[Rfam]
Rfam assigns this 145-nucleotide sequence from Histophilus somni to the family "FMN riboswitch aptamer (RFN element)".

RNA sequence: AUGCAUUCUCAGGGCAGGGUGAAACUCCCUACCGGUGGUAAAUAUUUCGAUAUAAGCCCACGAGCGCUUACUUAUCUUAGUAAGGUCAGCAGAUUUGGUGAAAAUCCAAAGCCGACAGUGAUAGUCUGGAUGAAAGAGAAUAGAG
Numbered sequence: 001a002u003g004c005a006u007u008c009u010c011a012g013g014g015c016a017g018g019g020u021g022a023a024a025c026u027c028c029c030u031a032c033c034g035g036u037g038g039u040a041a042a043u044a045u046u047u048c049g050a051u052a053u054a055a056g057c058c059c060a061c062g063a064g065c066g067c068u069u070a071c072u073u074a075u076c077u078u079a080g081u082a083a084g085g086u087c088a089g090c091a092g093a094u095u096u097g098g099u100g101a102a103a104a105u106c107c108a109a110a111g112c113c114g115a116c117a118g119u120g121a122u123a124g125u126c127u128g129g130a131u132g133a134a135a136g137a138g139a140a141u142a143g144a145g
Stems, first nucleotide, its partner, number of pairs: 005141006017029003031125002033114002035061004056112002064090002094110005116128003
From the family's description: The RFN element is a highly conserved domain that is found frequently in the 5'-untranslated regions of prokaryotic mRNAs that encode for flavin mononucleotide (FMN) biosynthesis and transport proteins.